[Rfam]
RNA: Glutamine riboswitch aptamer (glnA leader)
RNA sequence: UACGUUCAUCUCCUAACACUAGGAGACGCAAGUACCUCACGAAUGGAGGGAAGGAACGGGAA
Numbered sequence: 001u002a003c004g005u006u007c008a009u010c011u012c013c014u015a016a017c018a019c020u021a022g023g024a025g026a027c028g029c030a031a032g033u034a035c036c037u038c039a040c041g042a043a044u045g046g047a048g049g050g051a052a053g054g055a056a057c058g059g060g061a062a
Base pairs, nucleotide, nucleotide: 003058004057005056006055007054009026010025011024012023013022014021015020029059035049036048037047
Dot-bracket structure: ..(((((.(((((((....)))))))..[.....(((.........)))....)))))]...